RNA sequence: GACCAUUAUCGAAUCACCUCUCAAUGGUCGCGGCUG
Numbered sequence: 001g002a003c004c005a006u007u008a009u010c011g012a013a014u015c016a017c018c019u020c021u022c023a024a025u026g027g028u029c030g031c032g033g034c035u036g
Stems, first nucleotide, its partner, number of pairs: 001029007
A member of the RNA family "S4-Bacteroidia ribosomal protein leader", 36 nucleotides long. The sequence is in the family's curated seed alignment. On this family, see Eckert and Weinberg, BMC Microbiol 2020: "Discovery of 20 novel ribosomal leader candidates in bacteria and archaea". Pairs were carried over by alignment from the consensus structure, which is taken from published work. The family is grouped with related families in Rfam's "Ribosomal Protein S4 Leader clan". By type it is a cis-regulatory leader.